[Rfam]
RNA sequence: GGGUUCAGAGAAUAUUCUCUGGAGGAAUAUUUAGCUGGUCGGGCCGCCAUCUG
Dot-bracket structure: ....(((((((....))))))).........(((..(((......)))..)))
RNA: nhaA-I RNA